[Rfam]
RNA sequence: CCCCCCCCUAAAUCAGGUUCAAAGCCGAUGGUUGAGCAUCGCUCUAGUCGGUUUUUACCUCCCUGUUGGACUUGGCCGGGCUCUGCCCGGCCUUUUUU
Dot-bracket structure: .........(((((...................................)))))...................((((((((...))))))))......
Rfam assigns this 98-nucleotide sequence from Aliiroseovarius pelagivivens to the family "Singlet oxygen resistance RNA X". Taxonomically the source falls in Aliiroseovarius (Bacteria, Alphaproteobacteria, Rhodobacterales, Paracoccaceae). For this family Rfam cites "Photooxidative stress-induced and abundant small RNAs in Rhodobacter sphaeroides" (Berghoff et al., Mol Microbiol, 2009). Rfam classes the family as a small RNA. Rfam describes the family as follows. SorX (RSs2461)like SorY is a singlet oxygen induced sRNA that counteracts oxidative stress by targeting mRNA for a transporter in Rhodobacter. It also has an impact on resistance against organic hydroperoxides. Gene Ontology term of the family: response to photooxidative stress. Rfam 15.1 lists 528 matches to the family in 356 species. A search with the family's covariance model found it, with a score of 51 bits. The pairing is the family consensus, mapped onto this sequence.